[Rfam]
RNA sequence: GCUGGUGAAAGUGAUGACGGUUUUUCCCCGUCAGAGCGAUAGUGUUGAAUUCUCGCUGUUAAAGCCAGAUCGUGUCUGAUGCACCAGC
Numbered sequence: 001g002c003u004g005g006u007g008a009a010a011g012u013g014a015u016g017a018c019g020g021u022u023u024u025u026c027c028c029c030g031u032c033a034g035a036g037c038g039a040u041a042g043u044g045u046u047g048a049a050u051u052c053u054c055g056c057u058g059u060u061a062a063a064g065c066c067a068g069a070u071c072g073u074g075u076c077u078g079a080u081g082c083a084c085c086a087g088c
Stems, first nucleotide, its partner, number of pairs: 001088007009080001
Dot-bracket structure: (((((((.(......................................................................).)))))))
RNA: Small nucleolar SNORD12/SNORD106